[Rfam]
RNA sequence: CCCAAAUAUUAUAUUUUUUCUAUAAAAAUGGAAAAAGUGGAAAAAAAUAC
Numbered sequence: 001c002c003c004a005a006a007u008a009u010u011a012u013a014u015u016u017u018u019u020c021u022a023u024a025a026a027a028a029u030g031g032a033a034a035a036a037g038u039g040g041a042a043a044a045a046a047a048u049a050c
Base pairs, nucleotide, nucleotide: 014046015045016044017043018042019041020040021039022038023037

Overview: Shown here is a 50-nucleotide sequence from Hipposideros armiger, a member of the family "KRAS 3' UTR cis-regulatory element". The source organism's lineage runs through Eukaryota, Opisthokonta, Craniata, Tetrapoda and Hipposideros. Rfam's curators write: AU-rich 49 nt fragment in KRAS 3'UTR. Its sequence but not the secondary is necessary and sufficient for reporter repression in HeLa cells. A search with the family's covariance model found it, with a score of 52 bits.